[Rfam]
RNA sequence: GGGAGGGCCUUAUGCCAAUAAUCGCUUUGAAAUAUAUGAAAUUUGCUUUUAGCCUUUUAAAUGAAAAGGUAGAUAGAACAGGUCUUAUUUGUAAAACAAAUUUCAGACCUACUUAUCUACCAACAGGA
Numbered sequence: 001g002g003g004a005g006g007g008c009c010u011u012a013u014g015c016c017a018a019u020a021a022u023c024g025c026u027u028u029g030a031a032a033u034a035u036a037u038g039a040a041a042u043u044u045g046c047u048u049u050u051a052g053c054c055u056u057u058u059a060a061a062u063g064a065a066a067a068g069g070u071a072g073a074u075a076g077a078a079c080a081g082g083u084c085u086u087a088u089u090u091g092u093a094a095a096a097c098a099a100a101u102u103u104c105a106g107a108c109c110u111a112c113u114u115a116u117c118u119a120c121c122a123a124c125a126g127g128a
Stems, first nucleotide, its partner, number of pairs: 003057006011051002019045003026036001028034002068121008080110006087103001
RNA: Small Cajal body specific RNA 15